[Rfam]
RNA sequence: AACAAGCCGAUGGGGCGUGAUAUUGCUUGUCAUAGUUACUCUGAUU
Numbered sequence: 001a002a003c004a005a006g007c008c009g010a011u012g013g014g015g016c017g018u019g020a021u022a023u024u025g026c027u028u029g030u031c032a033u034a035g036u037u038a039c040u041c042u043g044a045u046u
Base pairs, nucleotide, nucleotide: 006016007015008014017033018032019031020030021029
A member of the RNA family "Small nucleolar RNA R442" from Lucilia cuprina, 46 nucleotides long. Rfam classes the family as a C/D-box small nucleolar RNA. Rfam links the family to the GO terms RNA processing and nucleolus. The base pairs follow the family's consensus structure, which was predicted with WAR. The source organism's lineage runs through Eukaryota, Arthropoda, Hexapoda, Dicondylia and Lucilia.